[Rfam]
RNA: Ribosomal S15 leader
Organism: Shewanella mangrovi
RNA sequence: ACCUUCGGCUGAGUUAGUGAUCGGCUGGAGUUUAAUUUAGAUUAUUUUGGAGAAACUCAUGUCACUAAGUACUGAACAAAAAGCAGAAAUUCUGGCGAAAUUUGGCCGUGGCGAA
Numbered sequence: 001a002c003c004u005u006c007g008g009c010u011g012a013g014u015u016a017g018u019g020a021u022c023g024g025c026u027g028g029a030g031u032u033u034a035a036u037u038u039a040g041a042u043u044a045u046u047u048u049g050g051a052g053a054a055a056c057u058c059a060u061g062u063c064a065c066u067a068a069g070u071a072c073u074g075a076a077c078a079a080a081a082a083g084c085a086g087a088a089a090u091u092c093u094g095g096c097g098a099a100a101u102u103u104g105g106c107c108g109u110g111g112c113g114a115a
Stems, first nucleotide, its partner, number of pairs: 007026006046069005052063001